RNA sequence: CAGGGUACCUUUGACCCUCCUUAGUUCAACCAAAUGAACUAAAGUUUUAAAAUGACAUGAUUUUUUUUUAAAAUAAUUCAUUUGUUUAAACUAAGGAGGAUCAAAAGGUACCCUG
Number, nucleotide and partner (000 for none) at each position: 001c000002a114003g113004g112005g111006u110007a109008c108009c107010u106011u105012u103013g102014a101015c000016c099017c098018u097019c096020c095021u094022u093023a092024g091025u090026u089027c000028a087029a086030c000031c084032a083033a082034a081035u080036g079037a078038a077039c000040u075041a074042a000043a000044g000045u000046u000047u000048u000049a000050a000051a000052a000053u000054g000055a000056c000057a000058u000059g000060a000061u000062u000063u000064u000065u000066u000067u000068u000069u000070a000071a000072a000073a000074u041075a040076a000077u038078u037079c036080a035081u034082u033083u032084g031085u000086u029087u028088a000089a026090a025091c024092u023093a022094a021095g020096g019097a018098g017099g016100a000101u014102c013103a012104a000105a011106a010107g009108g008109u007110a006111c005112c004113c003114u002115g000
The record is a 115-nucleotide sequence from Brachypodium distachyon, which matches "MIR5070 microRNA precursor family" in Rfam. The family is grouped with related families in Rfam's "MIR2863 microRNA precursor clan". NCBI's taxonomy places the organism under Eukaryota, Streptophyta, Tracheophyta, Mesangiospermae, Brachypodium. Pairs were carried over by alignment from the consensus structure, which was predicted with RNAalifold.